[Rfam]
RNA sequence: UAAUGUUAUAUCUCUUUUAGAAUUUGUCUAGCAGCUUUUCCAGUUUUCACUGAGGUAAAAA
Number, nucleotide and partner (000 for none) at each position: 001u000002a000003a000004u000005g000006u000007u000008a000009u000010a000011u000012c000013u000014c000015u000016u000017u000018u000019a000020g000021a000022a000023u000024u000025u000026g000027u000028c000029u000030a000031g000032c000033a000034g000035c000036u061037u059038u058039u057040c000041c055042a051043g050044u049045u000046u000047u000048c000049a044050c043051u042052g000053a000054g000055g041056u000057a039058a038059a037060a000061a036